[Rfam]
RNA sequence: AAUAUUAAAGUAGAAGGGAAGAUGGGUGGCUAAUGUAUAACUAAUCUAACUUUUGAGAAAUUUGAAAUUUUUUUAUAUUUCAAGUCUAACGAAAUUGGAUUAGUCUGCCCAUUUCCUUUAUAUGAAUCACUAGAUUAUUAUCAUACUAGUUCUUAUUUAGUGAUCUUUAGGUGCGGCUAAUCCUUCCAAGUGAAUUGGGAGGAUUUUUUU
Numbered sequence: 001a002a003u004a005u006u007a008a009a010g011u012a013g014a015a016g017g018g019a020a021g022a023u024g025g026g027u028g029g030c031u032a033a034u035g036u037a038u039a040a041c042u043a044a045u046c047u048a049a050c051u052u053u054u055g056a057g058a059a060a061u062u063u064g065a066a067a068u069u070u071u072u073u074u075a076u077a078u079u080u081c082a083a084g085u086c087u088a089a090c091g092a093a094a095u096u097g098g099a100u101u102a103g104u105c106u107g108c109c110c111a112u113u114u115c116c117u118u119u120a121u122a123u124g125a126a127u128c129a130c131u132a133g134a135u136u137a138u139u140a141u142c143a144u145a146c147u148a149g150u151u152c153u154u155a156u157u158u159a160g161u162g163a164u165c166u167u168u169a170g171g172u173g174c175g176g177c178u179a180a181u182c183c184u185u186c187c188a189a190g191u192g193a194a195u196u197g198g199g200a201g202g203a204u205u206u207u208u209u210u
Stems, first nucleotide, its partner, number of pairs: 016117004023111004029105001031103001042102008051094005060085009123159003129150005179205011
RNA: Bacillus sRNA ncr1575
Organism: Halalkalibacter suaedae